Shown here is a 131-nucleotide RNA from Rehmannia glutinosa, a member of the family "MIR7807 microRNA precursor family". Rfam's curators put it in the seed alignment.
RNA sequence: GUCCAGUAACUAUAUGAAAAUCUCAAUUUUGUUCCUAAUUUCACCGGAAAUUUGGAACUACACAUGCCAUCACGUGAUUGAAAUAGGAUGAAAUUAGUACCAAAAUUGAGAUUUUCAUAUAGUUACUGUAC
Numbered sequence: 001g002u003c004c005a006g007u008a009a010c011u012a013u014a015u016g017a018a019a020a021u022c023u024c025a026a027u028u029u030u031g032u033u034c035c036u037a038a039u040u041u042c043a044c045c046g047g048a049a050a051u052u053u054g055g056a057a058c059u060a061c062a063c064a065u066g067c068c069a070u071c072a073c074g075u076g077a078u079u080g081a082a083a084u085a086g087g088a089u090g091a092a093a094u095u096a097g098u099a100c101c102a103a104a105a106u107u108g109a110g111a112u113u114u115u116c117a118u119a120u121a122g123u124u125a126c127u128g129u130a131c
Stems, first nucleotide, its partner, number of pairs: 001131002004128028033099001035097009054079002061076003065072002